RNA sequence: CACGACGGGUCGCCGGAACGGUCAGCCCCCUGCGGGGAGGCGCCGGGCCGAGCAGCCCUUGGGGUGAAGCCGCGGCAACGCGGCCGGGCAACUUCGCCAGCCCGAAUCCGACAGGUCAUCCUUCACAGGCGGCUGACGAAGGGUUU
Numbered sequence: 001c002a003c004g005a006c007g008g009g010u011c012g013c014c015g016g017a018a019c020g021g022u023c024a025g026c027c028c029c030c031u032g033c034g035g036g037g038a039g040g041c042g043c044c045g046g047g048c049c050g051a052g053c054a055g056c057c058c059u060u061g062g063g064g065u066g067a068a069g070c071c072g073c074g075g076c077a078a079c080g081c082g083g084c085c086g087g088g089c090a091a092c093u094u095c096g097c098c099a100g101c102c103c104g105a106a107u108c109c110g111a112c113a114g115g116u117c118a119u120c121c122u123u124c125a126c127a128g129g130c131g132g133c134u135g136a137c138g139a140a141g142g143g144u145u146u
Stems, first nucleotide, its partner, number of pairs: 011131004019032002034126001036124004044061004062109003070083004086103004
Record summary
The record is a 146-nucleotide RNA sequence from Streptomyces glaucescens, which matches "c-di-AMP riboswitch aptamer (ydaO/yuaA leader)" in Rfam. The source organism's lineage runs through Bacteria, Actinomycetes, Kitasatosporales, Streptomycetaceae and Streptomyces.